[Rfam]
RNA sequence: ACUUGAUGAUGAAUGUAUUAUAAAUGACAAGCAUAUGGCUGAACUUAGGUGAUGUCAUCUUACUGCUGAAAAGU
Numbered sequence: 001a002c003u004u005g006a007u008g009a010u011g012a013a014u015g016u017a018u019u020a021u022a023a024a025u026g027a028c029a030a031g032c033a034u035a036u037g038g039c040u041g042a043a044c045u046u047a048g049g050u051g052a053u054g055u056c057a058u059c060u061u062a063c064u065g066c067u068g069a070a071a072a073g074u
Stems, first nucleotide, its partner, number of pairs: 001074002003071002
Background
Small nucleolar RNA SNORD27: a 74-nucleotide sequence from Rattus norvegicus. The family's RNA type in Rfam is C/D-box small nucleolar RNA. The pairing is the family consensus, mapped onto this sequence. The family has 8 seed sequences and 218 matches in Rfam 15.1. A search with the family's covariance model found it, with a score of 65 bits. Taxonomically the source falls in Rattus (Eukaryota, Euarchontoglires, Glires, Rodentia).